[Rfam]
The family of this 269-nucleotide part of an RNA from Palmaria palmata is "Eukaryotic large subunit ribosomal RNA". Pairs were carried over by alignment from the consensus structure, which is taken from published work.
RNA sequence: GAGUCUAGCACGGCUGCGAGUCGAAGAGUGAUUAAACUCAAGGGCGCAGUGAAAGCGAAAUUAUAAGCAAAUUGGGGAGGCGUUGCGUUUUUAACAAAAUGUCCUACCUCGAGCAUUUGUGCUGGGACCCGAAAGAUGGUGAACUAUGCCGGAGUAGGGCAAAGCCAGAGGAAACUCUGGUGGAGGCUCGUAGCGAUGCUGACGUGCAAAUCGCUCGUCGAACUUGGGUAUAGGGGCGAAAGACUAAUCGAACCAUCUAGUAGCUGGUU
Numbered sequence: 001g002a003g004u005c006u007a008g009c010a011c012g013g014c015u016g017c018g019a020g021u022c023g024a025a026g027a028g029u030g031a032u033u034a035a036a037c038u039c040a041a042g043g044g045c046g047c048a049g050u051g052a053a054a055g056c057g058a059a060a061u062u063a064u065a066a067g068c069a070a071a072u073u074g075g076g077g078a079g080g081c082g083u084u085g086c087g088u089u090u091u092u093a094a095c096a097a098a099a100u101g102u103c104c105u106a107c108c109u110c111g112a113g114c115a116u117u118u119g120u121g122c123u124g125g126g127a128c129c130c131g132a133a134a135g136a137u138g139g140u141g142a143a144c145u146a147u148g149c150c151g152g153a154g155u156a157g158g159g160c161a162a163a164g165c166c167a168g169a170g171g172a173a174a175c176u177c178u179g180g181u182g183g184a185g186g187c188u189c190g191u192a193g194c195g196a197u198g199c200u201g202a203c204g205u206g207c208a209a210a211u212c213g214c215u216c217g218u219c220g221a222a223c224u225u226g227g228g229u230a231u232a233g234g235g236g237c238g239a240a241a242g243a244c245u246a247a248u249c250g251a252a253c254c255a256u257c258u259a260g261u262a263g264c265u266g267g268u269u
Stems, first nucleotide, its partner, number of pairs: 005125009015115003020045003026039004049056002061066001076108002078105003081101003087095002128267002131264001135257006144233007152225003155221001157189004164181007193218004198214002201212002235245002
Dot-bracket structure: ....(((((((((.(((..(((...((((......))))...)))...((....))....(....).........((((((((...((.....))...))).))).))....))).)))))))))..((.(...((((((...(((((((.((((.((((...(((((((....)))))))....))))...((((.((.((........))))))))..).))).))))))).((.......))......))))))......).))..

Lineage of the source: Eukaryota > Rhodophyta > Florideophyceae > Palmariales > Palmaria.